[Rfam]
RNA sequence: GCGCAACGCGUGCUUGAUCACAAUUGUUCGGAACUUCACACCUUUGAGGCGUGCCGUUCGGAUGUACUGCGCUGUCAUAACUUCCGUCAUCGAUGCGCGGGUCAUACGCGCGAUAUAACCCAUGCCAUAGAGGGCGAUUGUUAUCACGGGCAGGAAGAAGUUUUGGAAAUUUGCAUCA
Numbered sequence: 001g002c003g004c005a006a007c008g009c010g011u012g013c014u015u016g017a018u019c020a021c022a023a024u025u026g027u028u029c030g031g032a033a034c035u036u037c038a039c040a041c042c043u044u045u046g047a048g049g050c051g052u053g054c055c056g057u058u059c060g061g062a063u064g065u066a067c068u069g070c071g072c073u074g075u076c077a078u079a080a081c082u083u084c085c086g087u088c089a090u091c092g093a094u095g096c097g098c099g100g101g102u103c104a105u106a107c108g109c110g111c112g113a114u115a116u117a118a119c120c121c122a123u124g125c126c127a128u129a130g131a132g133g134g135c136g137a138u139u140g141u142u143a144u145c146a147c148g149g150g151c152a153g154g155a156a157g158a159a160g161u162u163u164u165g166g167a168a169a170u171u172u173g174c175a176u177c178a
Stems, first nucleotide, its partner, number of pairs: 004140003007136003011132001013130002015127002019124002027122001030119001037112001039110001041108001045104003050099004054074001056072002059069003081095001083093002144178001146176001149172002153164004
A member of the RNA family "Ruegeria cis52 sRNA" from Cognatiyoonia sediminum, 178 nucleotides long. A search with the family's covariance model found it, with a score of 97 bits. Pairs were carried over by alignment from the consensus structure, which was predicted with RNAfold.